[Rfam]
RNA sequence: GGGAAACGCGGCAGGGGCUGGGGCCAUGAGCCACCCCGAGCCCUAGGAAGCGUAGGCUCA
Numbered sequence: 001g002g003g004a005a006a007c008g009c010g011g012c013a014g015g016g017g018c019u020g021g022g023g024c025c026a027u028g029a030g031c032c033a034c035c036c037c038g039a040g041c042c043c044u045a046g047g048a049a050g051c052g053u054a055g056g057c058u059c060a
Stems, first nucleotide, its partner, number of pairs: 014044006021037003028059005
The family of this 60-nucleotide sequence from Carlito syrichta is "Ma3 gene ribosomal frameshift signal". The source organism's lineage runs through Eukaryota, Metazoa, Mammalia, Eutheria and Carlito. Rfam classes the family as a frameshift element. For this family Rfam cites "A functional -1 ribosomal frameshift signal in the human paraneoplastic Ma3 gene" (Wills et al., J Biol Chem, 2006).